[Rfam]
RNA sequence: GAGUUAUGGUGUGUUGCAAGGUUAAGUUUUGAAAGAACGGAGCCGUAGCGAAAGCGAGUCUGAAUAGGGCGACAAGUAACACGACAUAGACCCGAAACCUAGUGAGCUAUCCAUGUCCAGGGUGAAAUCUCAGUUACAUGAGAUGGAGGCCCGAACCGGUGUGGGUUGAAAACUGCUCGGAUGAGGUGUGGAUAGGAGUGAAAGGCUAAUCAAACUGGGAAAUAGCUGGUU
Numbered sequence: 001g002a003g004u005u006a007u008g009g010u011g012u013g014u015u016g017c018a019a020g021g022u023u024a025a026g027u028u029u030u031g032a033a034a035g036a037a038c039g040g041a042g043c044c045g046u047a048g049c050g051a052a053a054g055c056g057a058g059u060c061u062g063a064a065u066a067g068g069g070c071g072a073c074a075a076g077u078a079a080c081a082c083g084a085c086a087u088a089g090a091c092c093c094g095a096a097a098c099c100u101a102g103u104g105a106g107c108u109a110u111c112c113a114u115g116u117c118c119a120g121g122g123u124g125a126a127a128u129c130u131c132a133g134u135u136a137c138a139u140g141a142g143a144u145g146g147a148g149g150c151c152c153g154a155a156c157c158g159g160u161g162u163g164g165g166u167u168g169a170a171a172a173c174u175g176c177u178c179g180g181a182u183g184a185g186g187u188g189u190g191g192a193u194a195g196g197a198g199u200g201a202a203a204g205g206c207u208a209a210u211c212a213a214a215c216u217g218g219g220a221a222a223u224a225g226c227u228g229g230u231u
Stems, first nucleotide, its partner, number of pairs: 005088004010083008020044004026038003048055002058070004091229002094226001098219006107195011118183001120152004127144006156180003161176004197207003